[Rfam]
RNA sequence: CCCUUGAUCCGGGCCCCUCUGACGUGAGCCAGCUGGCACUUACGUGAUGUCGGAUCCCAACU
Numbered sequence: 001c002c003c004u005u006g007a008u009c010c011g012g013g014c015c016c017c018u019c020u021g022a023c024g025u026g027a028g029c030c031a032g033c034u035g036g037c038a039c040u041u042a043c044g045u046g047a048u049g050u051c052g053g054a055u056c057c058c059a060a061c062u
Stems, first nucleotide, its partner, number of pairs: 006056007022045007

Description
This 62-nucleotide RNA sequence from Microvirga vignae belongs to the Rfam family "terC RNA". The family's consensus secondary structure is taken from published work.